[Rfam]
Overview: The family of this 346-nucleotide sequence from Firmicutes bacterium M10-2 is "Bacterial RNase P class B".
RNA sequence: CUAAUUCGGCAGUUGCUGGCUAUAAAAUGUUAGAGGAAAGUCCAUGCUCGCACGAUCUGUGAUGAUCGUAGUGUUUGUGCUGGAUGAACAAAUAAGUCCAGGCAUAGAAAUAUGACGGCUGGCUUGACUCCUUAGAUCUUUUGAUGAUGGAAGAAAGCCUUUAAAAGUGCCACAGAGACGAGUCCGUAUGGAAACAUACGGGGUGGAACGGGUAAACCCCGCAAGCGAGAAACCCAAAUUUGGUAGGGGAACUGAUCAAGGCCAAUUAAGAAGCCGAGAUCGGAUGCGUUAACGCAUAGAUAAAUAACUGCCACUGGGAAACCAGAACAGAACAUGGCUUAUGAAU
Numbered sequence: 001c002u003a004a005u006u007c008g009g010c011a012g013u014u015g016c017u018g019g020c021u022a023u024a025a026a027a028u029g030u031u032a033g034a035g036g037a038a039a040g041u042c043c044a045u046g047c048u049c050g051c052a053c054g055a056u057c058u059g060u061g062a063u064g065a066u067c068g069u070a071g072u073g074u075u076u077g078u079g080c081u082g083g084a085u086g087a088a089c090a091a092a093u094a095a096g097u098c099c100a101g102g103c104a105u106a107g108a109a110a111u112a113u114g115a116c117g118g119c120u121g122g123c124u125u126g127a128c129u130c131c132u133u134a135g136a137u138c139u140u141u142u143g144a145u146g147a148u149g150g151a152a153g154a155a156a157g158c159c160u161u162u163a164a165a166a167g168u169g170c171c172a173c174a175g176a177g178a179c180g181a182g183u184c185c186g187u188a189u190g191g192a193a194a195c196a197u198a199c200g201g202g203g204u205g206g207a208a209c210g211g212g213u214a215a216a217c218c219c220c221g222c223a224a225g226c227g228a229g230a231a232a233c234c235c236a237a238a239u240u241u242g243g244u245a246g247g248g249g250a251a252c253u254g255a256u257c258a259a260g261g262c263c264a265a266u267u268a269a270g271a272a273g274c275c276g277a278g279a280u281c282g283g284a285u286g287c288g289u290u291a292a293c294g295c296a297u298a299g300a301u302a303a304a305u306a307a308c309u310g311c312c313a314c315u316g317g318g319a320a321a322c323c324a325g326a327a328c329a330g331a332a333c334a335u336g337g338c339u340u341a342u343g344a345a346u
Stems, first nucleotide, its partner, number of pairs: 004346003008312007016033005038340003042337005047229005052069006075224005080101006102116001103114004117219002121159003129151003136145003167217002169213003183202008233248003252283006284297005314325004

Its Rfam clan is "RNaseP clan". Pairs were carried over by alignment from the consensus structure, which is taken from published work. Gene Ontology terms of the family: ribonuclease P activity, tRNA processing and dimeric ribonuclease P complex. The source organism's lineage runs through Bacteria, Bacillati and Bacillota. A reference for the family is Frank and Pace (1998), "Ribonuclease P: unity and diversity in a tRNA processing ribozyme", Annu Rev Biochem.